The record is an 86-nucleotide RNA from Nephila pilipes, which matches "Selenocysteine transfer RNA" in Rfam.
A search with the family's covariance model found it, with a score of 66 bits.
RNA sequence: GUCCAGAUGAGCAUCAGUGGUUUGGUGUGCGGGCUUCAAACCCAUAGCUGACGAGAGUCAGAAUGGUUCGAUUCCACCUUCUGGGC
Numbered sequence: 001g002u003c004c005a006g007a008u009g010a011g012c013a014u015c016a017g018u019g020g021u022u023u024g025g026u027g028u029g030c031g032g033g034c035u036u037c038a039a040a041c042c043c044a045u046a047g048c049u050g051a052c053g054a055g056a057g058u059c060a061g062a063a064u065g066g067u068u069c070g071a072u073u074c075c076a077c078c079u080u081c082u083g084g085g086c
Base pairs, nucleotide, nucleotide: 001086002085003084004083005082006081007080009078012027013026014025015024016023017022028046029045031043032042033041048061049060050059051058052057064076065075066074